[Rfam]
RNA sequence: CGCGUUUUUGUUCAGGCGGAGCUCGACCGCCGACUGACGUGAGCUGCCAUCUUGUGGGCGAACACCGCGAAGUCCACGGGGUCGAGCCGAUGUGCAGGGUGCCGCAGAUUGCUCCG
Numbered sequence: 001c002g003c004g005u006u007u008u009u010g011u012u013c014a015g016g017c018g019g020a021g022c023u024c025g026a027c028c029g030c031c032g033a034c035u036g037a038c039g040u041g042a043g044c045u046g047c048c049a050u051c052u053u054g055u056g057g058g059c060g061a062a063c064a065c066c067g068c069g070a071a072g073u074c075c076a077c078g079g080g081g082u083c084g085a086g087c088c089g090a091u092g093u094g095c096a097g098g099g100u101g102c103c104g105c106a107g108a109u110u111g112c113u114c115c116g
Stems, first nucleotide, its partner, number of pairs: 015031005077116005088111002091108001093106003097102001
RNA: ALIL pseudoknot
Organism: Lampropedia cohaerens